[Rfam]
RNA sequence: UGAGUAAGUCGGAUGAUCGCGUUUAUCUUUACGAUAAAUGAGGAAAGUCCGAGCUCCGUAGGGCAAGGGUGCUGGGUAAUACCCAGUGGAGGCGACUCUAAGGAUAGUGCAACAGAAAUAAACCGCCACAACUUUUGUGGUAAGGAUGGAAAGGUGAGGUAAGAGCUCACCAGCAACUAGGUGACUAGUUGGCUAUGUAAACCCCACCCGGAGCAAGACCAAGUAGGAACAUACAAAGGGGGCUGCCCGUUCCCGUUCCGUUGGUAGGUCGCUUGAGUCUACUGGCAACAGUAGGCCUAGAUAGAUGAUCGUCUAAGACAGAACUCGGCUUAUAGACUUACUCUCAUA
Numbered sequence: 001u002g003a004g005u006a007a008g009u010c011g012g013a014u015g016a017u018c019g020c021g022u023u024u025a026u027c028u029u030u031a032c033g034a035u036a037a038a039u040g041a042g043g044a045a046a047g048u049c050c051g052a053g054c055u056c057c058g059u060a061g062g063g064c065a066a067g068g069g070u071g072c073u074g075g076g077u078a079a080u081a082c083c084c085a086g087u088g089g090a091g092g093c094g095a096c097u098c099u100a101a102g103g104a105u106a107g108u109g110c111a112a113c114a115g116a117a118a119u120a121a122a123c124c125g126c127c128a129c130a131a132c133u134u135u136u137g138u139g140g141u142a143a144g145g146a147u148g149g150a151a152a153g154g155u156g157a158g159g160u161a162a163g164a165g166c167u168c169a170c171c172a173g174c175a176a177c178u179a180g181g182u183g184a185c186u187a188g189u190u191g192g193c194u195a196u197g198u199a200a201a202c203c204c205c206a207c208c209c210g211g212a213g214c215a216a217g218a219c220c221a222a223g224u225a226g227g228a229a230c231a232u233a234c235a236a237a238g239g240g241g242g243c244u245g246c247c248c249g250u251u252c253c254c255g256u257u258c259c260g261u262u263g264g265u266a267g268g269u270c271g272c273u274u275g276a277g278u279c280u281a282c283u284g285g286c287a288a289c290a291g292u293a294g295g296c297c298u299a300g301a302u303a304g305a306u307g308a309u310c311g312u313c314u315a316a317g318a319c320a321g322a323a324c325u326c327g328g329c330u331u332a333u334a335g336a337c338u339u340a341c342u343c344u345c346a347u348a
Stems, first nucleotide, its partner, number of pairs: 002343009011333001012313007020040008045331003049328005054213004062248002067209005072086005087101001088099004102204002107202002109198003123145002125141007153171006173193001174191007217270004227258004239253005277296008

The record is a 348-nucleotide sequence from Alkalithermobacter paradoxus, which matches "Bacterial RNase P class A" in Rfam. A search with the family's covariance model found it, with a score of 302 bits. About the family: Ribonuclease P (RNase P) is a ubiquitous endoribonuclease, found in archaea, bacteria and eukarya as well as chloroplasts and mitochondria. The source organism's lineage runs through Bacteria, Bacillota, Peptostreptococcales, Tepidibacteraceae and Alkalithermobacter.